Rfam assigns this 116-nucleotide RNA from Leersia perrieri to the family "Small nucleolar RNA Z278". On this family, see Chen et al., Nucleic Acids Res 2003: "The high diversity of snoRNAs in plants: identification and comparative study of 120 snoRNA genes from Oryza sativa". Rfam's curators write: snoZ278 is a C/D box small nucleolar RNA. Its methylation guide targets have not been reported.

[Rfam]
RNA sequence: UCCGAUGAUGAUAUUGUCUGCAAAAUGGAUGUGUUGUAAGAUCCAAGUCCCUGCUUUUAGGGAGAACCUACUUGGUGAAACAACAUUAAUAUGACAUCAACAGAUACAUCUGAGAU
Numbered sequence: 001u002c003c004g005a006u007g008a009u010g011a012u013a014u015u016g017u018c019u020g021c022a023a024a025a026u027g028g029a030u031g032u033g034u035u036g037u038a039a040g041a042u043c044c045a046a047g048u049c050c051c052u053g054c055u056u057u058u059a060g061g062g063a064g065a066a067c068c069u070a071c072u073u074g075g076u077g078a079a080a081c082a083a084c085a086u087u088a089a090u091a092u093g094a095c096a097u098c099a100a101c102a103g104a105u106a107c108a109u110c111u112g113a114g115a116u
Stems, first nucleotide, its partner, number of pairs: 003114001049062005
The family has 7 seed sequences and 1,130 matches in Rfam 15.1. NCBI's taxonomy places the organism under Eukaryota, Liliopsida, Poales, Oryzoideae, Leersia. By type it is a C/D-box small nucleolar RNA.